[Rfam]
The family of this 115-nucleotide RNA sequence from Myripristis murdjan is "Small nucleolar RNA SNORD67". The organism belongs to Myripristis, within Eukaryota. On this family, see Huttenhofer et al., EMBO J 2001: "RNomics: an experimental approach that identifies 201 candidates for novel, small, non-messenger RNAs in mouse". The match comes from Rfam's covariance-model search (96 bits). Rfam's curators write: snoRNA HBII-166 belongs to the C/D family of snoRNAs.
RNA sequence: UGUGAGAGUGAUGAGUUGCACUGUUCAGUUGGGGUGUUGGUUGCAGUGGCACUGACACCUCAAUCUGACUAUACCUGAGGACACACUAAAGUGCACAGGGGCCAUCUGACUCAAC
Numbered sequence: 001u002g003u004g005a006g007a008g009u010g011a012u013g014a015g016u017u018g019c020a021c022u023g024u025u026c027a028g029u030u031g032g033g034g035u036g037u038u039g040g041u042u043g044c045a046g047u048g049g050c051a052c053u054g055a056c057a058c059c060u061c062a063a064u065c066u067g068a069c070u071a072u073a074c075c076u077g078a079g080g081a082c083a084c085a086c087u088a089a090a091g092u093g094c095a096c097a098g099g100g101g102c103c104a105u106c107u108g109a110c111u112c113a114a115c
Stems, first nucleotide, its partner, number of pairs: 006112003025068004029063004034058003040053001042051003
The family has 15 seed sequences and 781 matches in Rfam 15.1. Its family is annotated with nucleolus and RNA processing in the Gene Ontology.